Record summary
The record is a 327-nucleotide sequence from Alligator mississippiensis, which matches "Nuclear RNase P" in Rfam. Its Rfam clan is "RNaseP clan". The family has 116 seed sequences and 3,848 matches in Rfam 15.1. NCBI's taxonomy places the organism under Eukaryota, Metazoa, Crocodylia, Alligatorinae, Alligator.
RNA sequence: UCAGAAGGAAGCUCACCACUGAGGUCACUUGCUGAGUGCUAGUCACUCCCUUCUCUCUGCCUCUGGGAAGGUCUGAGACAAGAGCCAACAGCUGACCUUACAGGGAACCCCCUGAUAUGGGGGGAUGAGGUACCAGGGAGGCUGGGCUCUGCCUUGGGAGAGGCAGAGAAGCCUGAGAGGAGGCUAUUCUCCCUUGACUGAUGCCUAUCCCCUGUGCAGGAUCUUGAGACAGGCUCAUGGCUAGCAACAUUGAGUCCAAUGGGAUGAGGUGAGGCUUGCUCCCCACAUGCAGGACUCACAACCCAAUUCAGACUACUCUCCCUCUGA
Numbered sequence: 001u002c003a004g005a006a007g008g009a010a011g012c013u014c015a016c017c018a019c020u021g022a023g024g025u026c027a028c029u030u031g032c033u034g035a036g037u038g039c040u041a042g043u044c045a046c047u048c049c050c051u052u053c054u055c056u057c058u059g060c061c062u063c064u065g066g067g068a069a070g071g072u073c074u075g076a077g078a079c080a081a082g083a084g085c086c087a088a089c090a091g092c093u094g095a096c097c098u099u100a101c102a103g104g105g106a107a108c109c110c111c112c113u114g115a116u117a118u119g120g121g122g123g124g125a126u127g128a129g130g131u132a133c134c135a136g137g138g139a140g141g142c143u144g145g146g147c148u149c150u151g152c153c154u155u156g157g158g159a160g161a162g163g164c165a166g167a168g169a170a171g172c173c174u175g176a177g178a179g180g181a182g183g184c185u186a187u188u189c190u191c192c193c194u195u196g197a198c199u200g201a202u203g204c205c206u207a208u209c210c211c212c213u214g215u216g217c218a219g220g221a222u223c224u225u226g227a228g229a230c231a232g233g234c235u236c237a238u239g240g241c242u243a244g245c246a247a248c249a250u251u252g253a254g255u256c257c258a259a260u261g262g263g264a265u266g267a268g269g270u271g272a273g274g275c276u277u278g279c280u281c282c283c284c285a286c287a288u289g290c291a292g293g294a295c296u297c298a299c300a301a302c303c304c305a306a307u308u309c310a311g312a313c314u315a316c317u318c319u320c321c322c323u324c325u326g327a
Base pairs, nucleotide, nucleotide: 001327002326003325004324007321008320009319012268013267014266015265016263017262021063022062023061024060034048035047036046037045038044073311074310075309076308077307083242084241085240086239093107096104097103108124109123110122111121112120113119125238126237127236128235129234131232146223148221149220150219269299270298271297272296273295275293276292277291278290279289